Rfam assigns this 54-nucleotide RNA sequence from Coregonus sp. 'balchen' to the family "UnaL2 LINE 3' element". Lineage of the source: Eukaryota > Metazoa > Craniata > Vertebrata > Coregonus. Its family is annotated with transposition, RNA-mediated in the Gene Ontology. Pairs were carried over by alignment from the consensus structure, which is taken from published work. Rfam classes the family as a cis-regulatory element. About the family: The eel long interspersed element (LINE) UnaL2 and its partner short interspersed element (SINE) share a conserved 3' tail containing a stem-loop that is critical for their retrotransposition.
RNA sequence: AAUAAAAAUAACUGUAAGUUGCUCUGGAUAAGAGCGUCUGCUAAAUGAAAAAAA
Number, nucleotide and partner (000 for none) at each position: 001a000002a000003u000004a000005a000006a000007a000008a000009u000010a000011a000012c000013u043014g041015u040016a039017a000018g000019u000020u036021g035022c034023u033024c032025u031026g000027g000028a000029u000030a000031a025032g024033a023034g022035c021036g020037u000038c000039u016040g015041c014042u000043a013044a000045a000046u000047g000048a000049a000050a000051a000052a000053a000054a000